[Rfam]
RNA sequence: GGCCUCCUGGUGCUUACCAUGGUCUGUGUUCUUACUCUGGUUAGAAAGAAGAGGCAGAGUAAACCUACCCAUAUACACCCUAGCCCAGGCCCCGUGCCUGGUCUGUGCUGUGAAUGGUGGGACACGG
Numbered sequence: 001g002g003c004c005u006c007c008u009g010g011u012g013c014u015u016a017c018c019a020u021g022g023u024c025u026g027u028g029u030u031c032u033u034a035c036u037c038u039g040g041u042u043a044g045a046a047a048g049a050a051g052a053g054g055c056a057g058a059g060u061a062a063a064c065c066u067a068c069c070c071a072u073a074u075a076c077a078c079c080c081u082a083g084c085c086c087a088g089g090c091c092c093c094g095u096g097c098c099u100g101g102u103c104u105g106u107g108c109u110g111u112g113a114a115u116g117g118u119g120g121g122a123c124a125c126g127g
Base pairs, nucleotide, nucleotide: 002055003054004053005052006051008049020043021042022041026037028035029034068119069117070116071115072114081105082104083103085101086100087099088098089097090096
RNA: Small nucleolar RNA SNORA51